The record is a 94-nucleotide RNA sequence from Staphylococcus haemolyticus, which matches "Fst antitoxin sRNA" in Rfam. It is located on the opposite strand of SprA1 sRNA. Rfam classes the family as an antitoxin RNA. Its family is annotated with mRNA binding in the Gene Ontology.
RNA sequence: GCCAGUAGUGAGGGGAUUUUUUGGUGUGGCUUGUCGCCUAUUUACUUAUUGUUACGGUUUCGAAGCCAAUACGAAAAUAACGUAACAAUACAAC
Numbered sequence: 001g002c003c004a005g006u007a008g009u010g011a012g013g014g015g016a017u018u019u020u021u022u023g024g025u026g027u028g029g030c031u032u033g034u035c036g037c038c039u040a041u042u043u044a045c046u047u048a049u050u051g052u053u054a055c056g057g058u059u060u061c062g063a064a065g066c067c068a069a070u071a072c073g074a075a076a077a078u079a080a081c082g083u084a085a086c087a088a089u090a091c092a093a094c
Base pairs, nucleotide, nucleotide: 008091009090010089026037027036028035029034051086052085053084054083055082056081060074061073062072